The family of this 78-nucleotide RNA is "chrB-a RNA". The sequence is in the family's curated seed alignment. The family has 163 seed sequences and 347 matches in Rfam 15.1.

RNA sequence: CCUACGGGGGAUGUGCGAUCUCCCCGCGAGGCGACAUGCCAAAGUAUCGCGUCCUGUUCUCAGAAAGGGCGCAGCAUG
Number, nucleotide and partner (000 for none) at each position: 001c000002c000003u000004a000005c026006g025007g024008g023009g022010g021011a000012u000013g000014u000015g000016c000017g000018a000019u000020c000021u010022c009023c008024c007025c006026g005027c000028g000029a000030g000031g000032c000033g000034a000035c000036a000037u000038g000039c000040c000041a000042a000043a000044g000045u000046a000047u000048c000049g072050c071051g070052u069053c068054c067055u000056g000057u000058u000059c000060u000061c000062a000063g000064a000065a000066a000067g054068g053069g052070c051071g050072c049073a000074g000075c000076a000077u000078g000